[Rfam]
RNA: Clostridiales-1 RNA
RNA sequence: UGAUGCCAGGGGCAAAAGUCUGUAUCCAUGUGAGCUUGCUCACUAGUGGAUACAAGACCUUGAGCCCCGCCCCGAUAUGAGCAUAAAAGCAGGAUGCAAUCCUGCGAUAUGCGAAUAUCAGCGCGGAUUGCGAAAGUGCAGGGCACGAAGCAAUCUGCAGGCAUCA
Numbered sequence: 001u002g003a004u005g006c007c008a009g010g011g012g013c014a015a016a017a018g019u020c021u022g023u024a025u026c027c028a029u030g031u032g033a034g035c036u037u038g039c040u041c042a043c044u045a046g047u048g049g050a051u052a053c054a055a056g057a058c059c060u061u062g063a064g065c066c067c068c069g070c071c072c073c074g075a076u077a078u079g080a081g082c083a084u085a086a087a088a089g090c091a092g093g094a095u096g097c098a099a100u101c102c103u104g105c106g107a108u109a110u111g112c113g114a115a116u117a118u119c120a121g122c123g124c125g126g127a128u129u130g131c132g133a134a135a136g137u138g139c140a141g142g143g144c145a146c147g148a149a150g151c152a153a154u155c156u157g158c159a160g161g162c163a164u165c166a
Stems, first nucleotide, its partner, number of pairs: 001166007010067004016060001018058004022053008030043005072121001074119005081112004089105007125156007136146004
Dot-bracket structure: (((((((..((((..(.(((((((((((((((((....)))))..)))))))).)))).)...))))....(.(((((..((((....(((((((...)))))))...))))..))))).)...(((((((....((((...))))...)))))))...)))))))